[Rfam]
RNA sequence: CUGAUAUGUGUCUGUGGUUGUAAGUCGAUGCCAGUCGCAGGCUAAGCGAUCCACGUAAAGGAUCCAAAGCGGUCCUGAUCAUAGUGCGGCUUAGAAGUAAGUCCUGCCGCGAAAAGCGAGAGAAGCAGUAGUGGGAGACUUAGUGUCUAUGAGCGAACCUUCCAGCAGGCGAGUGUGGGGUUAAAAACCAGGUCAGGCAUAUCAA
Numbered sequence: 001c002u003g004a005u006a007u008g009u010g011u012c013u014g015u016g017g018u019u020g021u022a023a024g025u026c027g028a029u030g031c032c033a034g035u036c037g038c039a040g041g042c043u044a045a046g047c048g049a050u051c052c053a054c055g056u057a058a059a060g061g062a063u064c065c066a067a068a069g070c071g072g073u074c075c076u077g078a079u080c081a082u083a084g085u086g087c088g089g090c091u092u093a094g095a096a097g098u099a100a101g102u103c104c105u106g107c108c109g110c111g112a113a114a115a116g117c118g119a120g121a122g123a124a125g126c127a128g129u130a131g132u133g134g135g136a137g138a139c140u141u142a143g144u145g146u147c148u149a150u151g152a153g154c155g156a157a158c159c160u161u162c163c164a165g166c167a168g169g170c171g172a173g174u175g176u177g178g179g180g181u182u183a184a185a186a187a188c189c190a191g192g193u194c195a196g197g198c199a200u201a202u203c204a205a
Stems, first nucleotide, its partner, number of pairs: 002204008012196003015190005028176003031041001033091007050084001055079001058076001060075005082183001103169005108118003122162004131154002137147003
RNA: raiA RNA